[Rfam]
Small nucleolar RNA SNORD73: a 68-nucleotide sequence from Poecilia formosa. By type it is a C/D-box small nucleolar RNA. Pairs were carried over by alignment from the consensus structure, which was predicted with PFOLD. Rfam links the family to the GO terms RNA processing and nucleolus.
RNA sequence: AGCGUGUGAUGAAAUACUGUUUCGGUCCCAUAUGACUGCCUGAUUACUGUUUGAGAUCAGCUGAUGCU
Numbered sequence: 001a002g003c004g005u006g007u008g009a010u011g012a013a014a015u016a017c018u019g020u021u022u023c024g025g026u027c028c029c030a031u032a033u034g035a036c037u038g039c040c041u042g043a044u045u046a047c048u049g050u051u052u053g054a055g056a057u058c059a060g061c062u063g064a065u066g067c068u
Stems, first nucleotide, its partner, number of pairs: 001068004